[Rfam]
RNA sequence: AACGUGCGUUGCCUUGUCGCUUCAGUAAUGAAGAGGAAAGUCCGAGCAUCACAGAGCGUCACACUUCCUAACGGGAAGGCACUCAGCAAUGGGUGACAGAAAGUGCAACAGAAAGUAAACCGCCUUCGGGUAAGGGUGAAAUGGUGAGGUAAGAGCUCACCGCGUUGGUGGCAACACGAACGGCAUGGUAAACCUUGUGAGAUGAAAGACCAAAUAGGUCUUAUUGUCCUUCGGGAAUGAAGUUGCUCGCUUCAUUGUCUUCACAGACAGAUAAGAUGGGUAGGUCGAUGGAGCCUGUGAGCGAUUGCAGGCCUAGAUAAAUGACAGGGACCACAUUGCUUGCAAUGGAGGUACAGAACUCGGCUUAUAGACGCACGUUUUUA
Numbered sequence: 001a002a003c004g005u006g007c008g009u010u011g012c013c014u015u016g017u018c019g020c021u022u023c024a025g026u027a028a029u030g031a032a033g034a035g036g037a038a039a040g041u042c043c044g045a046g047c048a049u050c051a052c053a054g055a056g057c058g059u060c061a062c063a064c065u066u067c068c069u070a071a072c073g074g075g076a077a078g079g080c081a082c083u084c085a086g087c088a089a090u091g092g093g094u095g096a097c098a099g100a101a102a103g104u105g106c107a108a109c110a111g112a113a114a115g116u117a118a119a120c121c122g123c124c125u126u127c128g129g130g131u132a133a134g135g136g137u138g139a140a141a142u143g144g145u146g147a148g149g150u151a152a153g154a155g156c157u158c159a160c161c162g163c164g165u166u167g168g169u170g171g172c173a174a175c176a177c178g179a180a181c182g183g184c185a186u187g188g189u190a191a192a193c194c195u196u197g198u199g200a201g202a203u204g205a206a207a208g209a210c211c212a213a214a215u216a217g218g219u220c221u222u223a224u225u226g227u228c229c230u231u232c233g234g235g236a237a238u239g240a241a242g243u244u245g246c247u248c249g250c251u252u253c254a255u256u257g258u259c260u261u262c263a264c265a266g267a268c269a270g271a272u273a274a275g276a277u278g279g280g281u282a283g284g285u286c287g288a289u290g291g292a293g294c295c296u297g298u299g300a301g302c303g304a305u306u307g308c309a310g311g312c313c314u315a316g317a318u319a320a321a322u323g324a325c326a327g328g329g330a331c332c333a334c335a336u337u338g339c340u341u342g343c344a345a346u347g348g349a350g351g352u353a354c355a356g357a358a359c360u361c362g363g364c365u366u367a368u369a370g371a372c373g374c375a376c377g378u379u380u381u382u383a
Stems, first nucleotide, its partner, number of pairs: 001379010011368001012329007020033005038366003042363005047204004054264001056262001059200005064078005079097001080095006098195002103193002105189002120135002122131003143161006162184001163182004168177003208286004218277006255270005293312008
A member of the RNA family "Bacterial RNase P class A" from Flammeovirga sp. SJP92, 383 nucleotides long.
Its family is annotated with tRNA processing, ribonuclease P activity and dimeric ribonuclease P complex in the Gene Ontology.
Taxonomically the source falls in Flammeovirga (Bacteria, Bacteroidota, Cytophagia, Cytophagales).
It is annotated as a ribozyme.
The match comes from Rfam's covariance-model search (270 bits).